Rfam assigns this 87-nucleotide RNA sequence from Alkalibaculum sporogenes to the family "c-di-GMP-I riboswitch aptamer". The family's consensus secondary structure is taken from published work. The organism belongs to Alkalibaculum, within Bacteria. Its family is annotated with cyclic-di-GMP binding in the Gene Ontology.

[Rfam]
RNA sequence: UAUAUAUAUGGGCAAAACUAUUGAAAAAUGGUGACGCAAAGCUACGAGUCUAAGUCGAAAUUACGAUAUGAUCGUCGAGCUACUAAC
Numbered sequence: 001u002a003u004a005u006a007u008a009u010g011g012g013c014a015a016a017a018c019u020a021u022u023g024a025a026a027a028a029u030g031g032u033g034a035c036g037c038a039a040a041g042c043u044a045c046g047a048g049u050c051u052a053a054g055u056c057g058a059a060a061u062u063a064c065g066a067u068a069u070g071a072u073c074g075u076c077g078a079g080c081u082a083c084u085a086a087c
Base pairs, nucleotide, nucleotide: 012037013036017032018031019030020029021028022027040081041080042079043078045077046076047075048072049071050070055066056065057064